[Rfam]
RNA sequence: UACAUUAAUUGGCAAACUUAUCGAAAGGUAAGGACGCAAAGCUAUGGGUCUAAAGAAUAAAUUCUAUGACUGCCAGGCUGCUAAA
Numbered sequence: 001u002a003c004a005u006u007a008a009u010u011g012g013c014a015a016a017c018u019u020a021u022c023g024a025a026a027g028g029u030a031a032g033g034a035c036g037c038a039a040a041g042c043u044a045u046g047g048g049u050c051u052a053a054a055g056a057a058u059a060a061a062u063u064c065u066a067u068g069a070c071u072g073c074c075a076g077g078c079u080g081c082u083a084a085a
Stems, first nucleotide, its partner, number of pairs: 012037002017032006040079004045075003048070003055064003
Overview
This 85-nucleotide RNA sequence from Crassaminicella thermophila belongs to the Rfam family "c-di-GMP-I riboswitch aptamer". Pairs were carried over by alignment from the consensus structure, which is taken from published work.